[Rfam]
RNA sequence: UCGUCAGGAUCGGGAGAAGCUAGCGCAGUCAUUUGGCAAACGCUGGUGCCGAAGGAGCAACCGCCCCGGUAAACUCUCAGGCAAACGGGACCAUCCUGACAA
Numbered sequence: 001u002c003g004u005c006a007g008g009a010u011c012g013g014g015a016g017a018a019g020c021u022a023g024c025g026c027a028g029u030c031a032u033u034u035g036g037c038a039a040a041c042g043c044u045g046g047u048g049c050c051g052a053a054g055g056a057g058c059a060a061c062c063g064c065c066c067c068g069g070u071a072a073a074c075u076c077u078c079a080g081g082c083a084a085a086c087g088g089g090a091c092c093a094u095c096c097u098g099a100c101a102a
Stems, first nucleotide, its partner, number of pairs: 006097005012092002020046006048082003051078002055076003061069002
Dot-bracket structure: .....(((((.((......((((((...............)))))).(((((..(((...((.....))....))))).)))........))))))).....
RNA: Glycine riboswitch aptamer
Organism: Ketogulonicigenium vulgare